RpsF leader: an 81-nucleotide RNA from Vibrio xiamenensis. Conserved and widely distributed to many bacterial species RNA structure. It precedes operon containing rpsF, which encodes ribosomal protein S6. The motif also precedes operon containing rpsR, which encodes ribosomal protein S18. The RNA was shown to interact with S6:S18 protein dimer in vitro. Rfam classes the family as a cis-regulatory leader. It scores 51 bits against the family's covariance model. Gene Ontology terms of the family: negative regulation of translation and protein binding.

RNA sequence: GUCUACUUUAAUCGUUCCUUGCUUCCUCUGGACGACCGAGCCAACUGUGGAAGCUGAAUAAUCCGUAAGGAGCAACCCAUG
Numbered sequence: 001g002u003c004u005a006c007u008u009u010a011a012u013c014g015u016u017c018c019u020u021g022c023u024u025c026c027u028c029u030g031g032a033c034g035a036c037c038g039a040g041c042c043a044a045c046u047g048u049g050g051a052a053g054c055u056g057a058a059u060a061a062u063c064c065g066u067a068a069g070g071a072g073c074a075a076c077c078c079a080u081g
Stems, first nucleotide, its partner, number of pairs: 014073007021054006029043003